A member of the RNA family "Bacterial small signal recognition particle RNA" from Wigglesworthia glossinidia, 98 nucleotides long. The family's RNA type in Rfam is non-coding RNA gene. Pairs were carried over by alignment from the consensus structure, which is taken from published work. The signal recognition particle (SRP) is a universally conserved ribonucleoprotein involved in the co-translational targeting of proteins to membranes. Rfam's curators put it in the seed alignment.
RNA sequence: UUCCAGCAUACAGCAAUAUUUUUAUUAGUAAAUUCGAUCAGGUCCGACAGGAAGCAAUCGUAGCUACAAAAAGUAUGUGUAUAGUAUGCUGGAAAAUU
Numbered sequence: 001u002u003c004c005a006g007c008a009u010a011c012a013g014c015a016a017u018a019u020u021u022u023u024a025u026u027a028g029u030a031a032a033u034u035c036g037a038u039c040a041g042g043u044c045c046g047a048c049a050g051g052a053a054g055c056a057a058u059c060g061u062a063g064c065u066a067c068a069a070a071a072a073g074u075a076u077g078u079g080u081a082u083a084g085u086a087u088g089c090u091g092g093a094a095a096a097u098u
Base pairs, nucleotide, nucleotide: 003092004091005090006089007088008087009086010085011084013082014077016076017075018074019073020072021071026066027065028064029063035060036059037058038057043052044051045050